A member of the RNA family "MIR8024 microRNA precursor family" from Solanum commersonii, 87 nucleotides long.
[Rfam]
RNA sequence: UUGGAGGACUUUGAAGACAGUAAUUUGCAUACUUAGAAGAUUUGAAGACUUCAACUUGCAUUCUUGGAAGAUUUGAAGACUUCGGCU
Numbered sequence: 001u002u003g004g005a006g007g008a009c010u011u012u013g014a015a016g017a018c019a020g021u022a023a024u025u026u027g028c029a030u031a032c033u034u035a036g037a038a039g040a041u042u043u044g045a046a047g048a049c050u051u052c053a054a055c056u057u058g059c060a061u062u063c064u065u066g067g068a069a070g071a072u073u074u075g076a077a078g079a080c081u082u083c084g085g086c087u
Stems, first nucleotide, its partner, number of pairs: 001085006010077006021066002026060004033054002036051002
NCBI's taxonomy places the organism under Eukaryota, Spermatophyta, asterids, Solanaceae, Solanum.